This 507-nucleotide sequence from Streptomyces luteoverticillatus belongs to the Rfam family "Saccharopolyspora sRNA 350". The family's RNA type in Rfam is antisense RNA.
RNA sequence: CGGACGGUGAACGCCCAGGUGCCGUCGGGCUCCAGGGGCAGCUUCUCACCGAAGUAGUCGCCGUCGGCGAGGGUGCCGAGCGCGAUCUCGUCCCCGUACUUGCCGGUGCCGGUCUUGGCGAGCUUGCCGUGCGCGAUGAGGAAGAUCUGGUCGGCGGGCUGCCCCGCCUCCACGAGUGCGUCGCCCGCGGCGUACUCCCGCUGCACGAAGGCGUCCGCCAGGGCCUCCAGGACGUCGGCGUCCUCGAAGCCGCGCAGGACGGGCAGCUCGCCCAGCUCCGGCGGGAUGACCCGGAUGUCGGCGCCGGUGGAGAUGAACUCCACCCGGCCGUCCCCGACGGUGUAGGUGAGCCGCCGGUUGACCCGGUAGGUGCCGGCCGAGACCUGCACCCAGGGCAGGACGCGCAGCAGCCAGCGCGAGGAGAUCCCCUGCAUCUGGGGGACGGACUUGGUGGUCGUCGCGAGCUGGCGUGCCGCGCCGGUGCCCAGGCUCAGCUGUGCCUGAGCG
Numbered sequence: 001c002g003g004a005c006g007g008u009g010a011a012c013g014c015c016c017a018g019g020u021g022c023c024g025u026c027g028g029g030c031u032c033c034a035g036g037g038g039c040a041g042c043u044u045c046u047c048a049c050c051g052a053a054g055u056a057g058u059c060g061c062c063g064u065c066g067g068c069g070a071g072g073g074u075g076c077c078g079a080g081c082g083c084g085a086u087c088u089c090g091u092c093c094c095c096g097u098a099c100u101u102g103c104c105g106g107u108g109c110c111g112g113u114c115u116u117g118g119c120g121a122g123c124u125u126g127c128c129g130u131g132c133g134c135g136a137u138g139a140g141g142a143a144g145a146u147c148u149g150g151u152c153g154g155c156g157g158g159c160u161g162c163c164c165c166g167c168c169u170c171c172a173c174g175a176g177u178g179c180g181u182c183g184c185c186c187g188c189g190g191c192g193u194a195c196u197c198c199c200g201c202u203g204c205a206c207g208a209a210g211g212c213g214u215c216c217g218c219c220a221g222g223g224c225c226u227c228c229a230g231g232a233c234g235u236c237g238g239c240g241u242c243c244u245c246g247a248a249g250c251c252g253c254g255c256a257g258g259a260c261g262g263g264c265a266g267c268u269c270g271c272c273c274a275g276c277u278c279c280g281g282c283g284g285g286a287u288g289a290c291c292c293g294g295a296u297g298u299c300g301g302c303g304c305c306g307g308u309g310g311a312g313a314u315g316a317a318c319u320c321c322a323c324c325c326g327g328c329c330g331u332c333c334c335c336g337a338c339g340g341u342g343u344a345g346g347u348g349a350g351c352c353g354c355c356g357g358u359u360g361a362c363c364c365g366g367u368a369g370g371u372g373c374c375g376g377c378c379g380a381g382a383c384c385u386g387c388a389c390c391c392a393g394g395g396c397a398g399g400a401c402g403c404g405c406a407g408c409a410g411c412c413a414g415c416g417c418g419a420g421g422a423g424a425u426c427c428c429c430u431g432c433a434u435c436u437g438g439g440g441g442a443c444g445g446a447c448u449u450g451g452u453g454g455u456c457g458u459c460g461c462g463a464g465c466u467g468g469c470g471u472g473c474c475g476c477g478c479c480g481g482u483g484c485c486c487a488g489g490c491u492c493a494g495c496u497g498u499g500c501c502u503g504a505g506c507g
Stems, first nucleotide, its partner, number of pairs: 006390004011385001015381001018328001021325001025322001027320003031316002039309002042306001047303001049301004054233002057227001060224003064220001065111004075103001077102004082097003117219004122214002126212002130209001131206001133204003138199001140197001143196002150191001154188006160178002165174002234296003240290003244286002249282004254278001256277002262269001329342004351379001353377005361371003391431005397425001401421001403418003407415001437476001439474002442471003448464002451461002477506002480501003486497003
The base pairs follow the family's consensus structure, which was predicted with RNAfold.